[Rfam]
RNA sequence: ACGUUCAGGUAAUCGCUGCAACUUAAGUUGUAGAGGAAAGUCCAUGCUCGCACAGUGCUGAGAUGCCUGUAGUGUUCGUGCCUAGCAAAUUCAUAAGCUAGGGCAGCCUGGUAUAGACUGGGUUGACGGCAGGGAAAACGCCUAAGUCCUUUCGGAUAUGGCGUGAAUACUUUGAAAGUGCCACAGUGACGAAGUCUUAUGAGAAAUCAUAAGAGUGGAACGAGGUAAACCCCACGAGUGAGAAACCCAAAUUAUGGUAGGGGCACCUUCUUGGAGGAAUUCAACGAAGAGAAGGACAGAGAAGUUCUCUGUAGAUAGAUGAUUACCACCGGAGUACGAGAUUUCGAUCGCUUGCAGUACGAAGGAACAGAACAUGGCUUACAGGA
Numbered sequence: 001a002c003g004u005u006c007a008g009g010u011a012a013u014c015g016c017u018g019c020a021a022c023u024u025a026a027g028u029u030g031u032a033g034a035g036g037a038a039a040g041u042c043c044a045u046g047c048u049c050g051c052a053c054a055g056u057g058c059u060g061a062g063a064u065g066c067c068u069g070u071a072g073u074g075u076u077c078g079u080g081c082c083u084a085g086c087a088a089a090u091u092c093a094u095a096a097g098c099u100a101g102g103g104c105a106g107c108c109u110g111g112u113a114u115a116g117a118c119u120g121g122g123u124u125g126a127c128g129g130c131a132g133g134g135a136a137a138a139c140g141c142c143u144a145a146g147u148c149c150u151u152u153c154g155g156a157u158a159u160g161g162c163g164u165g166a167a168u169a170c171u172u173u174g175a176a177a178g179u180g181c182c183a184c185a186g187u188g189a190c191g192a193a194g195u196c197u198u199a200u201g202a203g204a205a206a207u208c209a210u211a212a213g214a215g216u217g218g219a220a221c222g223a224g225g226u227a228a229a230c231c232c233c234a235c236g237a238g239u240g241a242g243a244a245a246c247c248c249a250a251a252u253u254a255u256g257g258u259a260g261g262g263g264c265a266c267c268u269u270c271u272u273g274g275a276g277g278a279a280u281u282c283a284a285c286g287a288a289g290a291g292a293a294g295g296a297c298a299g300a301g302a303a304g305u306u307c308u309c310u311g312u313a314g315a316u317a318g319a320u321g322a323u324u325a326c327c328a329c330c331g332g333a334g335u336a337c338g339a340g341a342u343u344u345c346g347a348u349c350g351c352u353u354g355c356a357g358u359a360c361g362a363a364g365g366a367a368c369a370g371a372a373c374a375u376g377g378c379u380u381a382c383a384g385g386a
Base pairs, nucleotide, nucleotide: 004386005385006384008327009326010325011324012323013322014321016033017032018031019030020029021028038380039379040378042377043376044375045374046373047242048241049240050239051238052070053069054068055067057066058065076237077236078235079234080233081102082101083100084099085098086097103127104125105124106123107122108121109120110119111118112117128232129231131172132171133170139163140162141161142160146157147156148155178230179229180226181225182224195214196213197212198211199210200209201208202207246262247261248260266295267294268293269292270291271290272289296312297311298310299309300308301307329365330364334360335359336358337357
Dot-bracket structure: ...(((.(((((((.((((((......))))))....[[[.[[[[[(((((((((.((......)))))).....(((((((((((..........))))))((((((((((....))))))))).)((.(((.....((((...(((......)))..))))......))).....(((((............((((((((....)))))))).........)))..))))))))))))))...(((...........)))...(((((((................)))))))((((((.....))))))........))))))).((...((((...................))))...)).......]]]]]]]]...)))